[Rfam]
RNA: Small Cajal body specific RNA ncR21
RNA sequence: UUGUCAAUUAUCUUCUCAUGAAAUUUUGAUUCAUUGUGAUCAGCUGAAGACCAGUAUAGGAAGAAGUUGAUCAUUUUGUGAACAUGGAUCCUAAUCAUACCGACGAUC
Numbered sequence: 001u002u003g004u005c006a007a008u009u010a011u012c013u014u015c016u017c018a019u020g021a022a023a024u025u026u027u028g029a030u031u032c033a034u035u036g037u038g039a040u041c042a043g044c045u046g047a048a049g050a051c052c053a054g055u056a057u058a059g060g061a062a063g064a065a066g067u068u069g070a071u072c073a074u075u076u077u078g079u080g081a082a083c084a085u086g087g088a089u090c091c092u093a094a095u096c097a098u099a100c101c102g103a104c105g106a107u108c
Stems, first nucleotide, its partner, number of pairs: 009099003014094001023085002030082005037073008